[Rfam]
RNA: FMN riboswitch aptamer (RFN element)
Organism: Halarsenatibacter silvermanii
RNA sequence: CGAAGCUGACGGGGAGUGGUGAAAUUCCAUACCGGUGGUAAAAGUCCACGAACCCUUGCAGGGUUGAUCUGGUGAGAUUCCAGAACCGACAGUUAUAGUCUGGAAGAAAGUUGGCUUAU
Numbered sequence: 001c002g003a004a005g006c007u008g009a010c011g012g013g014g015a016g017u018g019g020u021g022a023a024a025u026u027c028c029a030u031a032c033c034g035g036u037g038g039u040a041a042a043a044g045u046c047c048a049c050g051a052a053c054c055c056u057u058g059c060a061g062g063g064u065u066g067a068u069c070u071g072g073u074g075a076g077a078u079u080c081c082a083g084a085a086c087c088g089a090c091a092g093u094u095a096u097a098g099u100c101u102g103g104a105a106g107a108a109a110g111u112u113g114g115c116u117u118a119u
Stems, first nucleotide, its partner, number of pairs: 003117008017029003031099002033088002035049004044086002052064003068084005090102003